[Rfam]
RNA sequence: CAAUAUCAGCUGCUUCUGGUUAAAGGGUUUGCUUUCUUAAUAAUGUGGAAACAAACAAAGAUAUAAACAUAGUACUAGUCGGUAAAAGGUGGGUUUUAUGUAGUAGUACGUGGUACGUUGUGGAAUUCAGAGUCUUUUUCCGCAUUUUGCAAUGAUUCGUGCAUGCGAGUUAUUAAUGCGUAUCGGAAACAAUCAAACUCGCAUCUAUGAAACUUACCAUCCUUUCGUC
Numbered sequence: 001c002a003a004u005a006u007c008a009g010c011u012g013c014u015u016c017u018g019g020u021u022a023a024a025g026g027g028u029u030u031g032c033u034u035u036c037u038u039a040a041u042a043a044u045g046u047g048g049a050a051a052c053a054a055a056c057a058a059a060g061a062u063a064u065a066a067a068c069a070u071a072g073u074a075c076u077a078g079u080c081g082g083u084a085a086a087a088g089g090u091g092g093g094u095u096u097u098a099u100g101u102a103g104u105a106g107u108a109c110g111u112g113g114u115a116c117g118u119u120g121u122g123g124a125a126u127u128c129a130g131a132g133u134c135u136u137u138u139u140c141c142g143c144a145u146u147u148u149g150c151a152a153u154g155a156u157u158c159g160u161g162c163a164u165g166c167g168a169g170u171u172a173u174u175a176a177u178g179c180g181u182a183u184c185g186g187a188a189a190c191a192a193u194c195a196a197a198c199u200c201g202c203a204u205c206u207a208u209g210a211a212a213c214u215u216a217c218c219a220u221c222c223u224u225u226c227g228u229c
Base pairs, nucleotide, nucleotide: 033063035061036060037059038058069228070227085225086224087223088222089221090219091218092217106162107161108160109159110158116154117153118152119151120150121149123141125138164203165202166201167200168199169198170197171196